RNA sequence: UGAAUACAAGGAGAUGGCAUACCUCCUGGAACCGCCCUGCCGGGCUGAUGAUGCCUGCAUUUGA
Numbered sequence: 001u002g003a004a005u006a007c008a009a010g011g012a013g014a015u016g017g018c019a020u021a022c023c024u025c026c027u028g029g030a031a032c033c034g035c036c037c038u039g040c041c042g043g044g045c046u047g048a049u050g051a052u053g054c055c056u057g058c059a060u061u062u063g064a
Stems, first nucleotide, its partner, number of pairs: 010026004016055005034045004
RNA: Fluoride riboswitch aptamer (crcB RNA motif)